Small nucleolar RNA U6-53/MBII-28: a 119-nucleotide RNA from Scyliorhinus torazame. Its family is annotated with nucleolus and RNA processing in the Gene Ontology. Lineage of the source: Eukaryota > Eumetazoa > Deuterostomia > Elasmobranchii > Scyliorhinus. On this family, see Huttenhofer et al., EMBO J 2001: "RNomics: an experimental approach that identifies 201 candidates for novel, small, non-messenger RNAs in mouse". The family has 25 seed sequences and 780 matches in Rfam 15.1. It is annotated as a C/D-box small nucleolar RNA.
RNA sequence: UGCCAGUGAUGAGUUGCCAUGCUAAUACCGAUGCACCAGGCUGCGUCCUGUGACCCGGCUCUGGGUGCGCGUGAGUUAAAGCUCACCUUCUCGACACGGUGUGUGGAGACCUGAGGCAA
Numbered sequence: 001u002g003c004c005a006g007u008g009a010u011g012a013g014u015u016g017c018c019a020u021g022c023u024a025a026u027a028c029c030g031a032u033g034c035a036c037c038a039g040g041c042u043g044c045g046u047c048c049u050g051u052g053a054c055c056c057g058g059c060u061c062u063g064g065g066u067g068c069g070c071g072u073g074a075g076u077u078a079a080a081g082c083u084c085a086c087c088u089u090c091u092c093g094a095c096a097c098g099g100u101g102u103g104u105g106g107a108g109a110c111c112u113g114a115g116g117c118a119a
Base pairs, nucleotide, nucleotide: 001118002117003116004115041058042057043056045054